[Rfam]
RNA sequence: AAGCCAUGCACGGGGUGUUCUGACGAUUCAGGACUGAGAUCAUACCCGAGACUUGAUUUGGAUAAUGCCAACGUAAGGAUGCAGUCACUGGAAAUA
Numbered sequence: 001a002a003g004c005c006a007u008g009c010a011c012g013g014g015g016u017g018u019u020c021u022g023a024c025g026a027u028u029c030a031g032g033a034c035u036g037a038g039a040u041c042a043u044a045c046c047c048g049a050g051a052c053u054u055g056a057u058u059u060g061g062a063u064a065a066u067g068c069c070a071a072c073g074u075a076a077g078g079a080u081g082c083a084g085u086c087a088c089u090g091g092a093a094a095u096a
Base pairs, nucleotide, nucleotide: 007083008082009081010080011048012047013046014045016042017034018033019032020031021030052077053076054075055074058071059070060069061068
Rfam assigns this 96-nucleotide sequence from Membranihabitans marinus to the family "TPP riboswitch aptamer (THI element)". The family's consensus secondary structure is taken from published work.